The record is a 355-nucleotide part of an RNA from Dehalococcoides mccartyi, which matches "Bacterial small subunit ribosomal RNA" in Rfam. The literature on the family includes a 2001 paper in Science by Yusupov et al., "Crystal structure of the ribosome at 5.5 A resolution". The source organism's lineage runs through Bacteria, Bacillati, Dehalococcoidia, Dehalococcoidales and Dehalococcoides mccartyi. The base pairs follow the family's consensus structure, which is taken from published work.
[Rfam]
RNA sequence: GGCGUAAAGUGAGCGUAGGUGGUCUUUCAAGUUGGAUGUGAAAUUUCCCGGCUUAACCGGGACGAGUCAUUCAAUACUGUUGGACUAGAGUACAGCAGGAGAAAACGGAAUUCCCGGUGUAGUGGUAAAAUGCGUAGAUAUCGGGAGGAACACCAGAGGCGAAGGCGGUUUUCUAGGUUGUCACUGACACUGAGGCUCGAAAGCGUGGGGAGCGAACAGAAUUAGAUACUCUGGUAGUCCACGCCUUAAACUAUGGACACUAGGUAUAGGGAGUAUCGACCCUCUCUGUGCCGAAGCUAACGCUUUAAGUGUCCCGCCUGGGGAGUACGGUCGCAAGGCUAAAACUCAAAGGAAU
Numbered sequence: 001g002g003c004g005u006a007a008a009g010u011g012a013g014c015g016u017a018g019g020u021g022g023u024c025u026u027u028c029a030a031g032u033u034g035g036a037u038g039u040g041a042a043a044u045u046u047c048c049c050g051g052c053u054u055a056a057c058c059g060g061g062a063c064g065a066g067u068c069a070u071u072c073a074a075u076a077c078u079g080u081u082g083g084a085c086u087a088g089a090g091u092a093c094a095g096c097a098g099g100a101g102a103a104a105a106c107g108g109a110a111u112u113c114c115c116g117g118u119g120u121a122g123u124g125g126u127a128a129a130a131u132g133c134g135u136a137g138a139u140a141u142c143g144g145g146a147g148g149a150a151c152a153c154c155a156g157a158g159g160c161g162a163a164g165g166c167g168g169u170u171u172u173c174u175a176g177g178u179u180g181u182c183a184c185u186g187a188c189a190c191u192g193a194g195g196c197u198c199g200a201a202a203g204c205g206u207g208g209g210g211a212g213c214g215a216a217c218a219g220a221a222u223u224a225g226a227u228a229c230u231c232u233g234g235u236a237g238u239c240c241a242c243g244c245c246u247u248a249a250a251c252u253a254u255g256g257a258c259a260c261u262a263g264g265u266a267u268a269g270g271g272a273g274u275a276u277c278g279a280c281c282c283u284c285u286c287u288g289u290g291c292c293g294a295a296g297c298u299a300a301c302g303c304u305u306u307a308a309g310u311g312u313c314c315c316g317c318c319u320g321g322g323g324a325g326u327a328c329g330g331u332c333g334c335a336a337g338g339c340u341a342a343a344a345c346u347c348a349a350a351g352g353a354a355u
Base pairs, nucleotide, nucleotide: 001318002317003316009315011198012197013196014195016192018191019190020189022085023084024083025082028079030078031077032074033073034072035071036070037069038068046062047061048060049059050058051057089185090184091183092181093180094179095178096177100174101173102172103171104170105169106168107151111147112146113145114144115143116142117141118140122133123132124131159166160165203244204243205242206241207240208239212238213237217233218232219231220230255314256313257312258311259310260309263292264291265290266289267288268287269286270285271284272283273282296303297302320347321346322345329340330339331338332337